The family of this 90-nucleotide RNA from Neobacillus piezotolerans is "c-di-GMP-I riboswitch aptamer". It scores 75 bits against the family's covariance model. Clan: c-di-GMP_I riboswitch clan. Gene Ontology term of the family: cyclic-di-GMP binding.

[Rfam]
RNA sequence: UGUACGAAACGGCAAAUCCACUGAAAAGUGGGGGCGCAAAACUAAAGGGGCUAAAGCUAUUUUAAAUAGCCAUGCCAGCCAGUUCCCGAA
Numbered sequence: 001u002g003u004a005c006g007a008a009a010c011g012g013c014a015a016a017u018c019c020a021c022u023g024a025a026a027a028g029u030g031g032g033g034g035c036g037c038a039a040a041a042c043u044a045a046a047g048g049g050g051c052u053a054a055a056g057c058u059a060u061u062u063u064a065a066a067u068a069g070c071c072a073u074g075c076c077a078g079c080c081a082g083u084u085c086c087c088g089a090a
Stems, first nucleotide, its partner, number of pairs: 012037002017032006040084004047080002049076003056070006
Lineage of the source: Bacteria > Bacillati > Bacilli > Bacillaceae > Neobacillus.